Nucleotides: 172
Base pairs, nucleotide, nucleotide: 020049021048022047023046024045025044026043027042029040030039031038058091059090060089061088062087067080068079069078070077092112093111094110095109096108097107117162118161119160120159121158123156131148132147133146134145135144136143137142
Number, partner (000 for none) and nucleotide at each position: 001000u002000a003000u004000u005000u006000u007000a008000a009000a010000u011000a012000a013000g014000c015000g016000c017000c018000u019000g020049a021048a022047c023046u024045a025044u026043u027042u028000c029040u030039c031038g032000u033000g034000c035000g036000c037000u038031u039030g040029a041000g042027a043026g044025a045024u046023a047022g048021u049020u050000g051000a052000c053000g054000a055000g056000g057000a058091g059090g060089a061088g062087g063000a064000g065000u066000a067080u068079c069078g070077a071000g072000u073000u074000a075000a076000a077070u078069c079068g080067g081000c082000g083000g084000a085000u086000a087062c088061c089060u090059c091058c092112c093111g094110g095109u096108u097107g098000c099000a100000c101000a102000a103000c104000c105000u106000c107097c108096a109095a110094c111093c112092g113000u114000u115000a116000u117162a118161u119160g120159u121158u122000a123156u124000u125000c126000g127000a128000a129000a130000a131148c132147a133146a134145a135144g136143a137142g138000g139000c140000g141000a142137c143136u144135c145134u146133u147132u148131g149000c150000a151000c152000a153000a154000a155000g156123a157000a158121g159120a160119c161118a162117u163000g164000u165000a166000a167000g168000a169000g170000g171000u172000u

Record summary
Rfam assigns this 172-nucleotide RNA sequence from Pelagirhabdus alkalitolerans to the family "glmS glucosamine-6-phosphate activated ribozyme aptamer". NCBI's taxonomy places the organism under Bacteria, Bacillati, Bacillota, Caryophanales, Pelagirhabdus. It scores 112 bits against the family's covariance model.